This 58-nucleotide RNA sequence from Streptomyces alkaliterrae belongs to the Rfam family "msiK RNA". The base pairs follow the family's consensus structure, which is taken from published work. The family's RNA type in Rfam is cis-regulatory element.
RNA sequence: GCCCAACCUCCCUUUACUCGGAUCGUCCGGCACGUUCCUGCCGGUGAAGGAGUCACAA
Numbered sequence: 001g002c003c004c005a006a007c008c009u010c011c012c013u014u015u016a017c018u019c020g021g022a023u024c025g026u027c028c029g030g031c032a033c034g035u036u037c038c039u040g041c042c043g044g045u046g047a048a049g050g051a052g053u054c055a056c057a058a
Base pairs, nucleotide, nucleotide: 010050011049013047015046016045027044028043029042030041031040032039